RNA sequence: UGGUGGUGAUGUCCAAACUCACGAUGGUCUUCAGAGCCCCUGCUGCCGAGGGGGCUGCUGACAGUGCCAGUGGCGAUUGCUGAACCGCAAGG
Dot-bracket structure: ((((...............................................................................)))).....
Numbered sequence: 001u002g003g004u005g006g007u008g009a010u011g012u013c014c015a016a017a018c019u020c021a022c023g024a025u026g027g028u029c030u031u032c033a034g035a036g037c038c039c040c041u042g043c044u045g046c047c048g049a050g051g052g053g054g055c056u057g058c059u060g061a062c063a064g065u066g067c068c069a070g071u072g073g074c075g076a077u078u079g080c081u082g083a084a085c086c087g088c089a090a091g092g
Stems, first nucleotide, its partner, number of pairs: 001087004